[Rfam]
RNA sequence: CAAUUUUGUUGAUGGAUAAGUAUCCUAACGGGCUUUUUAGGCUGUCAACAUAUAAUUAGAGGAGUGCUGUUAAUGGCCCGUAUCGCUGGCAUUAACAUCCCUGAA
Numbered sequence: 001c002a003a004u005u006u007u008g009u010u011g012a013u014g015g016a017u018a019a020g021u022a023u024c025c026u027a028a029c030g031g032g033c034u035u036u037u038u039a040g041g042c043u044g045u046c047a048a049c050a051u052a053u054a055a056u057u058a059g060a061g062g063a064g065u066g067c068u069g070u071u072a073a074u075g076g077c078c079c080g081u082a083u084c085g086c087u088g089g090c091a092u093u094a095a096c097a098u099c100c101c102u103g104a105a
Base pairs, nucleotide, nucleotide: 005052007050008049009048010047011046012045013044024089025088029080030079031078032077037104038103039102
Rfam assigns this 105-nucleotide RNA from Paralteromonas sediminis to the family "Alpha operon ribosome binding site".
Its family is annotated with ribosome binding in the Gene Ontology.
NCBI's taxonomy places the organism under Bacteria, Pseudomonadati, Alteromonadales, Alteromonadaceae, Paralteromonas.
It scores 86 bits against the family's covariance model.
The family's RNA type in Rfam is cis-regulatory element.